[Rfam]
RNA sequence: CAAUCAGCGGGGAAAGAAGACCCUGUUGAGCUUCACUCUAGUCCGGCUUUGUGAGACGACUUGGGGGGCGUAGGAUAGGUGGGAGGCUCUGCCGGCGGUGAAAUACCACUACCCUCGAUGUUGUCUUGCUUAUUCCGUAGUGCAGCCGCGCGUCUUGCGUUUUUGGGCUGGGCGGAAGACACAGCCAGGUGGGGAGUUUGACUGGGGCGGUACAUCUGUUAAAGGAUAACGCAGGUGUCCCAAGGCGAGCUCAGUGAGGACAGAAAUCUCACGUGGACCAAAAGGGGAAAAGUUCGCUUGAUUUUGAUUUUCAGUAAAAAUACAAACUGUGUAAGCAUGGCCUAUCGAUCCUUUUUGUCCGCGAGUCCUGCGGCUAGAGGUGUCAGAAAAGUUACCACAGGGAUAACUGGCUUGUGGCAGCCAAGCGUUCAUAGCGACGUUGCUUUUUGAUCCUUCGAUGUCGGCUCUUCCUAUCAUUGAGAUGCAGAAGUCUCAAAGUGUCGGAUUGUUCACCCGCUAAUAGGGAACGUGAGCUGGGUUUAGACCGUCGUGAGACAGGUUAGUUUUACCCUACUGAUGGCU
Numbered sequence: 001c002a003a004u005c006a007g008c009g010g011g012g013a014a015a016g017a018a019g020a021c022c023c024u025g026u027u028g029a030g031c032u033u034c035a036c037u038c039u040a041g042u043c044c045g046g047c048u049u050u051g052u053g054a055g056a057c058g059a060c061u062u063g064g065g066g067g068g069c070g071u072a073g074g075a076u077a078g079g080u081g082g083g084a085g086g087c088u089c090u091g092c093c094g095g096c097g098g099u100g101a102a103a104u105a106c107c108a109c110u111a112c113c114c115u116c117g118a119u120g121u122u123g124u125c126u127u128g129c130u131u132a133u134u135c136c137g138u139a140g141u142g143c144a145g146c147c148g149c150g151c152g153u154c155u156u157g158c159g160u161u162u163u164u165g166g167g168c169u170g171g172g173c174g175g176a177a178g179a180c181a182c183a184g185c186c187a188g189g190u191g192g193g194g195a196g197u198u199u200g201a202c203u204g205g206g207g208c209g210g211u212a213c214a215u216c217u218g219u220u221a222a223a224g225g226a227u228a229a230c231g232c233a234g235g236u237g238u239c240c241c242a243a244g245g246c247g248a249g250c251u252c253a254g255u256g257a258g259g260a261c262a263g264a265a266a267u268c269u270c271a272c273g274u275g276g277a278c279c280a281a282a283a284g285g286g287g288a289a290a291a292g293u294u295c296g297c298u299u300g301a302u303u304u305u306g307a308u309u310u311u312c313a314g315u316a317a318a319a320a321u322a323c324a325a326a327c328u329g330u331g332u333a334a335g336c337a338u339g340g341c342c343u344a345u346c347g348a349u350c351c352u353u354u355u356u357g358u359c360c361g362c363g364a365g366u367c368c369u370g371c372g373g374c375u376a377g378a379g380g381u382g383u384c385a386g387a388a389a390a391g392u393u394a395c396c397a398c399a400g401g402g403a404u405a406a407c408u409g410g411c412u413u414g415u416g417g418c419a420g421c422c423a424a425g426c427g428u429u430c431a432u433a434g435c436g437a438c439g440u441u442g443c444u445u446u447u448u449g450a451u452c453c454u455u456c457g458a459u460g461u462c463g464g465c466u467c468u469u470c471c472u473a474u475c476a477u478u479g480a481g482a483u484g485c486a487g488a489a490g491u492c493u494c495a496a497a498g499u500g501u502c503g504g505a506u507u508g509u510u511c512a513c514c515c516g517c518u519a520a521u522a523g524g525g526a527a528c529g530u531g532a533g534c535u536g537g538g539u540u541u542a543g544a545c546c547g548u549c550g551u552g553a554g555a556c557a558g559g560u561u562a563g564u565u566u567u568a569c570c571c572u573a574c575u576g577a578u579g580g581c582u
Base pairs, nucleotide, nucleotide: 001580003578004577005576006575007574010572011571012570014567015566022401023400024399025398027397028396029393030392031391032390033389035197036196037195038194042189043188045186046185047184048183051129052128053127054126055125056124057123058122059121060120061118062117063116064115065114066113067112078110079109080108081107082106085093086092133177134176135175136174137173143170144169145168146167149159150158151157152156200213201211202210203209214236215235216234217233218232219231239340240339245297246296247295248294249293250292251277252276254272255271256270257269258268259267278287279286302326303325304324307321308320309319310318328337329336330335351379352378353377354376359373360372361371362370410451412449414448416444417443418442419441420440421439425435426434462537463535464534465533466532467529468526469525470524471523472522475500476499478495479494480493481492482491483490502516503515504514506512543561544560545559546558547556548555549554
The family of this 582-nucleotide part of an RNA from Babesia ovis is "Eukaryotic large subunit ribosomal RNA". The match comes from Rfam's covariance-model search (2898 bits).